[Rfam]
RNA sequence: UGCGUGGUUACGCAGAAUCCGAAGGAAGCUAGCGGCAAACCACCGGUCUGAGGAACACGAACUUCAUAUGACGCUAGGUAUCAUUGGUGAGUUUCGUAAAAAACAAAAUACUUUCUUACUAAGAUGAUACAAAGUAAAUGAAGCAGAUAGAGGAGGGAAGAUUGCACUC
Numbered sequence: 001u002g003c004g005u006g007g008u009u010a011c012g013c014a015g016a017a018u019c020c021g022a023a024g025g026a027a028g029c030u031a032g033c034g035g036c037a038a039a040c041c042a043c044c045g046g047u048c049u050g051a052g053g054a055a056c057a058c059g060a061a062c063u064u065c066a067u068a069u070g071a072c073g074c075u076a077g078g079u080a081u082c083a084u085u086g087g088u089g090a091g092u093u094u095c096g097u098a099a100a101a102a103a104c105a106a107a108a109u110a111c112u113u114u115c116u117u118a119c120u121a122a123g124a125u126g127a128u129a130c131a132a133a134g135u136a137a138a139u140g141a142a143g144c145a146g147a148u149a150g151a152g153g154a155g156g157g158a159a160g161a162u163u164g165c166a167c168u169c
Stems, first nucleotide, its partner, number of pairs: 001016001004013003028169001032165001035162001040156002043153002046148005062143006073135003078130006087109002091104004
The record is a 169-nucleotide RNA sequence from Bacillus sp. Y1, which matches "Group II catalytic intron D1-D4-3" in Rfam. The base pairs follow the family's consensus structure. Taxonomically the source falls in Bacillus (Bacteria, Bacillati, Caryophanales, Bacillaceae). Rfam describes the family as follows. Group II introns are found in rRNA, tRNA and mRNA of organelles in fungi, plants and protists, and also in mRNA in bacteria.